Source information:
A member of the RNA family "UnaL2 LINE 3' element" from Salmo trutta, 54 nucleotides long. Rfam classes the family as a cis-regulatory element.

RNA sequence: UGCACUCGUUACUGUAAGUCACUCUGGAUAAGAGCGUUUGCUAAAAGACUAAAA
Number, nucleotide and partner (000 for none) at each position: 001u000002g000003c000004a000005c000006u000007c000008g000009u000010u000011a000012c000013u043014g041015u040016a039017a000018g000019u000020c036021a000022c034023u033024c032025u031026g000027g000028a000029u000030a000031a025032g024033a023034g022035c000036g020037u000038u000039u016040g015041c014042u000043a013044a000045a000046a000047g000048a000049c000050u000051a000052a000053a000054a000
The literature on the family includes a 2004 paper in RNA by Baba et al., "Solution structure of an RNA stem-loop derived from the 3' conserved region of eel LINE UnaL2". Gene Ontology term of the family: transposition, RNA-mediated. NCBI's taxonomy places the organism under Eukaryota, Chordata, Gnathostomata, Teleostomi, Salmo.